The family of this 87-nucleotide RNA sequence from Artemisia annua is "Small nucleolar RNA snoR109".
The family has 6 seed sequences and 680 matches in Rfam 15.1.
Rfam links the family to the GO terms RNA processing and nucleolus.
Rfam classes the family as an H/ACA-box small nucleolar RNA.
It scores 68 bits against the family's covariance model.
A reference for the family is Marker et al. (2002), "Experimental RNomics: identification of 140 candidates for small non-messenger RNAs in the plant Arabidopsis thaliana", Curr Biol.
[Rfam]
RNA sequence: CGGCUGUAGCUAAAUGGCAUAACGAAGUUUUACUGGCCGUUUGUUGUUAAUCUGUCGAUAAAUCUGCUUACCGAACUUCUUACAUCU
Number, nucleotide and partner (000 for none) at each position: 001c000002g000003g000004c000005u000006g000007u000008a000009g000010c000011u000012a000013a000014a000015u000016g000017g000018c000019a000020u000021a000022a081023c000024g079025a078026a077027g076028u075029u074030u000031u000032a000033c000034u000035g068036g067037c066038c000039g064040u000041u062042u061043g059044u058045u057046g056047u000048u000049a000050a000051u000052c000053u000054g000055u000056c046057g045058a044059u043060a000061a042062a041063u000064c039065u000066g037067c036068u035069u000070a000071c000072c000073g000074a029075a028076c027077u026078u025079c024080u000081u022082a000083c000084a000085u000086c000087u000